The record is a 134-nucleotide sequence from Gadus morhua, which matches "U8 small nucleolar RNA" in Rfam.
[Rfam]
RNA sequence: UUAUUAGUGAGGUCUUACCUUACCUGUGGUUCUCUAAUGGGGAACUUCAGAACAUGAUGAUUGGAUAGCUUAUGAGAUAUGAUUAUAUCUCCUUCCUGACUGUGGCCAACAACCUUCCAGGUUUCCAUUCUGAA
Numbered sequence: 001u002u003a004u005u006a007g008u009g010a011g012g013u014c015u016u017a018c019c020u021u022a023c024c025u026g027u028g029g030u031u032c033u034c035u036a037a038u039g040g041g042g043a044a045c046u047u048c049a050g051a052a053c054a055u056g057a058u059g060a061u062u063g064g065a066u067a068g069c070u071u072a073u074g075a076g077a078u079a080u081g082a083u084u085a086u087a088u089c090u091c092c093u094u095c096c097u098g099a100c101u102g103u104g105g106c107c108a109a110c111a112a113c114c115u116u117c118c119a120g121g122u123u124u125c126c127a128u129u130c131u132g133a134a
Stems, first nucleotide, its partner, number of pairs: 024050003028046006074091002077088004095121004102114001104113001
For this family Rfam cites "The U8 snoRNA gene family: identification and characterization of distinct, functional U8 genes in Xenopus" (Peculis et al., Gene, 2001).